[Rfam]
RNA sequence: CGCUAUACUACCCGCUGAAAUAAUCGGCUCAACGCUACGAGCGGGUGUUCAAUGUGU
Numbered sequence: 001c002g003c004u005a006u007a008c009u010a011c012c013c014g015c016u017g018a019a020a021u022a023a024u025c026g027g028c029u030c031a032a033c034g035c036u037a038c039g040a041g042c043g044g045g046u047g048u049u050c051a052a053u054g055u056g057u
Stems, first nucleotide, its partner, number of pairs: 002012001004010002016051004023046003027042004

Notes: Rfam assigns this 57-nucleotide sequence from Enterobacter sp. 638 to the family "Enterobacterial sRNA STnc450". The family's RNA type in Rfam is small RNA.